[Rfam]
RNA sequence: CAUCCUCAGCCUUACUCCAGGGACUUUUGCUUGUAACGCACCUUGGCAUUGCCUGAAGAUAGAUGAGAAAGCGCAUCUCUCUCCCCAGUAAGCCUCUGCUUUCUUGUGGGGCCUACACACUGCACUGACAGG
Numbered sequence: 001c002a003u004c005c006u007c008a009g010c011c012u013u014a015c016u017c018c019a020g021g022g023a024c025u026u027u028u029g030c031u032u033g034u035a036a037c038g039c040a041c042c043u044u045g046g047c048a049u050u051g052c053c054u055g056a057a058g059a060u061a062g063a064u065g066a067g068a069a070a071g072c073g074c075a076u077c078u079c080u081c082u083c084c085c086c087a088g089u090a091a092g093c094c095u096c097u098g099c100u101u102u103c104u105u106g107u108g109g110g111g112c113c114u115a116c117a118c119a120c121u122g123c124a125c126u127g128a129c130a131g132g
Stems, first nucleotide, its partner, number of pairs: 003059002006056004011051001017046006024038001026036002070126002074122002083111005090105003
RNA: Small nucleolar RNA SNORA49
Organism: Heterocephalus glaber